The record is a 346-nucleotide sequence from Hominimerdicola alba, which matches "Bacterial RNase P class A" in Rfam. The source organism's lineage runs through Bacteria, Clostridia, Oscillospiraceae, Hominimerdicola and Hominimerdicola alba. Rfam classes the family as a ribozyme. It scores 254 bits against the family's covariance model.
RNA sequence: UGAGCAUGCCAUACGGUAGCGGCAGCGGUCAUACGCUGAUGAGGAAAGUCCGAGCAUCAACGAGCAGGAUAGCUGAUAACGUCAGCCGAGGGUGACCUCCGAGCUAGUGCAACAGAGAUAUACCGCCGCAGAGAUGCGGUAAGGGUGGAAAGGCGGGGUAAGAGCCCACCGGAGCGGCAGAGAUGCCGCUGCCAUGUAAACCUUAUCCGAUGCAACACCAAUGGCAGCCGAAAGGUCAAUGCGCUCGUCAGACCCCAGGUUGUAGGUGGCUUGAGCUGUGGGGCGACCCACAGCCUAGAUAGAUUACCGUACAAGACAAAACUCGGCUUACAGACAGGCUCACGCU
Numbered sequence: 001u002g003a004g005c006a007u008g009c010c011a012u013a014c015g016g017u018a019g020c021g022g023c024a025g026c027g028g029u030c031a032u033a034c035g036c037u038g039a040u041g042a043g044g045a046a047a048g049u050c051c052g053a054g055c056a057u058c059a060a061c062g063a064g065c066a067g068g069a070u071a072g073c074u075g076a077u078a079a080c081g082u083c084a085g086c087c088g089a090g091g092g093u094g095a096c097c098u099c100c101g102a103g104c105u106a107g108u109g110c111a112a113c114a115g116a117g118a119u120a121u122a123c124c125g126c127c128g129c130a131g132a133g134a135u136g137c138g139g140u141a142a143g144g145g146u147g148g149a150a151a152g153g154c155g156g157g158g159u160a161a162g163a164g165c166c167c168a169c170c171g172g173a174g175c176g177g178c179a180g181a182g183a184u185g186c187c188g189c190u191g192c193c194a195u196g197u198a199a200a201c202c203u204u205a206u207c208c209g210a211u212g213c214a215a216c217a218c219c220a221a222u223g224g225c226a227g228c229c230g231a232a233a234g235g236u237c238a239a240u241g242c243g244c245u246c247g248u249c250a251g252a253c254c255c256c257a258g259g260u261u262g263u264a265g266g267u268g269g270c271u272u273g274a275g276c277u278g279u280g281g282g283g284c285g286a287c288c289c290a291c292a293g294c295c296u297a298g299a300u301a302g303a304u305u306a307c308c309g310u311a312c313a314a315g316a317c318a319a320a321a322c323u324c325g326g327c328u329u330a331c332a333g334a335c336a337g338g339c340u341c342a343c344g345c346u
Base pairs, nucleotide, nucleotide: 001342002341003340004339005338007336008335010333012311013310014309015308016307017306018305020041021040023038024037025036026035027034046329047328048327050326051325052324053323054322055212056211057210058209062244064242065241067208068207069206070205071204072086073085074084075083076082087101088099089098090097091096102203103202107201108200109197110196111195123144124143125140126139127138128137129136130135152170153169155167156166157165172192173190174189175188176187177186178185179184216268217267218266219265224256227253229251235249237247239245275294276293277292278291279290280289281288282287
Dot-bracket structure: (((((.((.(.(((((((.((.(((((......))))).))....[[[.[[[[[((((...[.[[.((((((((((.....)))))(((((....)))).)((...(((((...........((((((((....))))))..)).......((.(((.......))).)).((((((((....))))))).)..)))..)))))))))))))...((((....(..(.(.....(.(.(.]].]).).).).)..)........))))......((((((((....))))))))..........)))))))..........]]]]]]]]...).)).)))))....